[Rfam]
RNA sequence: CCCUAGGAGUGUCACAUCAAACGAAAGUAGUAUAUUCAUUCUUUUGAAUUACAAAAUCGGACACGUUGAACAGGGAA
Numbered sequence: 001c002c003c004u005a006g007g008a009g010u011g012u013c014a015c016a017u018c019a020a021a022c023g024a025a026a027g028u029a030g031u032a033u034a035u036u037c038a039u040u041c042u043u044u045u046g047a048a049u050u051a052c053a054a055a056a057u058c059g060g061a062c063a064c065g066u067u068g069a070a071c072a073g074g075g076a077a
Base pairs, nucleotide, nucleotide: 001075002074003073004072009064010063011062012061013060022059023058024057030052031051032050035048036047037046038045

Rfam assigns this 77-nucleotide sequence from Clostridium grantii to the family "RAGATH-18 RNA". Rfam's curators write: Actinobacteria, Firmicutes, Fusobacteria, Thermotogae (1 example). The match comes from Rfam's covariance-model search (76 bits). By type it is a small RNA.